[Rfam]
RNA sequence: CUGUUCCGUCGAGAAGCACCUCGAGACAACAAACAGGGUGUUCCAUCAUCUCCAUGUCUCGCGGCUAGUCCUCGGACCCGUGGCAGCAAGUGCCCGAGCGUGAAGCUCGCCCUGCCGAUCCGGACGGAUGGGAACACCUCGUGUGAUCGCAAUCCGAGAUCGGGAGGUUACAUUGUCGUAGCAAAGUUAUGUGCGUAACGAAAUGAGGCUCACUCCAAUGGAAAA
Numbered sequence: 001c002u003g004u005u006c007c008g009u010c011g012a013g014a015a016g017c018a019c020c021u022c023g024a025g026a027c028a029a030c031a032a033a034c035a036g037g038g039u040g041u042u043c044c045a046u047c048a049u050c051u052c053c054a055u056g057u058c059u060c061g062c063g064g065c066u067a068g069u070c071c072u073c074g075g076a077c078c079c080g081u082g083g084c085a086g087c088a089a090g091u092g093c094c095c096g097a098g099c100g101u102g103a104a105g106c107u108c109g110c111c112c113u114g115c116c117g118a119u120c121c122g123g124a125c126g127g128a129u130g131g132g133a134a135c136a137c138c139u140c141g142u143g144u145g146a147u148c149g150c151a152a153u154c155c156g157a158g159a160u161c162g163g164g165a166g167g168u169u170a171c172a173u174u175g176u177c178g179u180a181g182c183a184a185a186g187u188u189a190u191g192u193g194c195g196u197a198a199c200g201a202a203a204u205g206a207g208g209c210u211c212a213c214u215c216c217a218a219u220g221g222a223a224a225a
Base pairs, nucleotide, nucleotide: 002225004223005222006221007220008219009218011216014196016194017193018192019191021063022061023060024059025058026057027056036051037050038049039048040047067210068209070208071207072206073205082094083093084092085091095109096108097107098106099105111167112166113165115163116162117161118160119159120158121156122155123154124153127148128147135143136142137141

This 225-nucleotide RNA sequence from Bemisia tabaci belongs to the Rfam family "RNase MRP". It is annotated as a ribozyme. Rfam 15.1 lists 3,510 matches to the family in 2,315 species. The match comes from Rfam's covariance-model search (59 bits). The family's consensus secondary structure is taken from published work. The literature on the family includes a 1993 paper in FASEB J by Schmitt et al., "Secondary structure of RNase MRP RNA as predicted by phylogenetic comparison". RNase MRP is an enzymatically active ribonucleoprotein with two distinct roles in eukaryotes.